The record is an 88-nucleotide RNA sequence from Derxia gummosa, which matches "c-di-GMP-I riboswitch aptamer" in Rfam. The match comes from Rfam's covariance-model search (67 bits). The literature on the family includes a 2007 paper in Nucleic Acids Res by Weinberg et al., "Identification of 22 candidate structured RNAs in bacteria using the CMfinder comparative genomics pipeline". Lineage of the source: Bacteria > Pseudomonadati > Burkholderiales > Alcaligenaceae > Derxia gummosa.
[Rfam]
RNA sequence: GAACUGAAAAGGCAACUUCGUCGAAAGGCGAAAGACGCAAAGUCACCGGCCUAAAGGGAUUCACCCCCAUGGCAGCGGAACCGCCAAA
Numbered sequence: 001g002a003a004c005u006g007a008a009a010a011g012g013c014a015a016c017u018u019c020g021u022c023g024a025a026a027g028g029c030g031a032a033a034g035a036c037g038c039a040a041a042g043u044c045a046c047c048g049g050c051c052u053a054a055a056g057g058g059a060u061u062c063a064c065c066c067c068c069a070u071g072g073c074a075g076c077g078g079a080a081c082c083g084c085c086a087a088a
Base pairs, nucleotide, nucleotide: 012038013037017032018031019030020029021028022027042081043080046078047077048076049073050072051071056067057066058065